This 77-nucleotide RNA sequence from Alligator sinensis belongs to the Rfam family "Mammalian CPEB3 ribozyme".
[Rfam]
RNA sequence: AGUCGCAAGUUUGAGGACAUAGCAGAAGCACUCAAGGCGUGGCCCUGUCAGAUUCCAAUGAAUCUGUGAAUUUUACU
Numbered sequence: 001a002g003u004c005g006c007a008a009g010u011u012u013g014a015g016g017a018c019a020u021a022g023c024a025g026a027a028g029c030a031c032u033c034a035a036g037g038c039g040u041g042g043c044c045c046u047g048u049c050a051g052a053u054u055c056c057a058a059u060g061a062a063u064c065u066g067u068g069a070a071u072u073u074u075a076c077u
Stems, first nucleotide, its partner, number of pairs: 013045001015044002018041001021077002024074004028040002049066007
The mammalian CPEB3 ribozyme is a self cleaving RNA located in the second intron of the CPEB3 gene which belongs to a family of genes regulating messenger RNA polyadenylation. Pairs were carried over by alignment from the consensus structure, which is taken from published work.